[Rfam]
RNA sequence: AGUUGCAAGUUUGAGGCCAUAGCAGAAGCACUUGUAGUGUGGCCCUAUCAGGUUCCAGCAAAACUGUGAAUUCUGCU
Numbered sequence: 001a002g003u004u005g006c007a008a009g010u011u012u013g014a015g016g017c018c019a020u021a022g023c024a025g026a027a028g029c030a031c032u033u034g035u036a037g038u039g040u041g042g043c044c045c046u047a048u049c050a051g052g053u054u055c056c057a058g059c060a061a062a063a064c065u066g067u068g069a070a071u072u073c074u075g076c077u
Stems, first nucleotide, its partner, number of pairs: 013045001015044004021077007028040003049066003053062002
Overview
A member of the RNA family "Mammalian CPEB3 ribozyme" from Alligator mississippiensis, 77 nucleotides long. The mammalian CPEB3 ribozyme is a self cleaving RNA located in the second intron of the CPEB3 gene which belongs to a family of genes regulating messenger RNA polyadenylation.